[Rfam]
RNA sequence: AACAUGCUCCUUAGAUCCACCUUUGUGGAUGCCAGACUUGUGCUGAGUUUGGCUAGAUUUCAUUUGAAGUGUCUAGUCAUUCCAGGCAAGUGGUAUUCAGCAACUUUUUUGGUUGUCCAGUCGAAGGUGCUUGAGUCAUUGGCAUGUGAGAGAAACACACCUGCACGUUAGCCUUUCAUGUUCUGAUGUUAAUACCUGCUUACCAUCAGGAUUUGGCUGGUAUGCAGACAUU
Numbered sequence: 001a002a003c004a005u006g007c008u009c010c011u012u013a014g015a016u017c018c019a020c021c022u023u024u025g026u027g028g029a030u031g032c033c034a035g036a037c038u039u040g041u042g043c044u045g046a047g048u049u050u051g052g053c054u055a056g057a058u059u060u061c062a063u064u065u066g067a068a069g070u071g072u073c074u075a076g077u078c079a080u081u082c083c084a085g086g087c088a089a090g091u092g093g094u095a096u097u098c099a100g101c102a103a104c105u106u107u108u109u110u111g112g113u114u115g116u117c118c119a120g121u122c123g124a125a126g127g128u129g130c131u132u133g134a135g136u137c138a139u140u141g142g143c144a145u146g147u148g149a150g151a152g153a154a155a156c157a158c159a160c161c162u163g164c165a166c167g168u169u170a171g172c173c174u175u176u177c178a179u180g181u182u183c184u185g186a187u188g189u190u191a192a193u194a195c196c197u198g199c200u201u202a203c204c205a206u207c208a209g210g211a212u213u214u215g216g217c218u219g220g221u222a223u224g225c226a227g228a229c230a231u232u
Stems, first nucleotide, its partner, number of pairs: 002147007010135005018129008026099006036091004043085003047082001050079004056073001061071003100116006161227005168220001170218004182210007193202002
RNA: Small nucleolar RNA SNORA53
Organism: Microcaecilia unicolor